Shown here is a 136-nucleotide RNA from Sarcina sp. DSM 11001, a member of the family "SAM riboswitch aptamer (S box leader)".

RNA sequence: CUCUUAUUCAGAGUGGUGGAGGUACAUAGGACCUGUGAAGCCACGGCAACCCCUUUGUGUAAUAUUCGCCUGUGCAUAUUACACGGGAAGGUGCCUGCCUGAGCGGAAGCCGGAUCGGUGUUUCGAACAAUAAGGG
Numbered sequence: 001c002u003c004u005u006a007u008u009c010a011g012a013g014u015g016g017u018g019g020a021g022g023u024a025c026a027u028a029g030g031a032c033c034u035g036u037g038a039a040g041c042c043a044c045g046g047c048a049a050c051c052c053c054u055u056u057g058u059g060u061a062a063u064a065u066u067c068g069c070c071u072g073u074g075c076a077u078a079u080u081a082c083a084c085g086g087g088a089a090g091g092u093g094c095c096u097g098c099c100u101g102a103g104c105g106g107a108a109g110c111c112g113g114a115u116c117g118g119u120g121u122u123u124c125g126a127a128c129a130a131u132a133a134g135g136g
Stems, first nucleotide, its partner, number of pairs: 001136008013044005021033003027103001030100001045095004050091002052087003104125005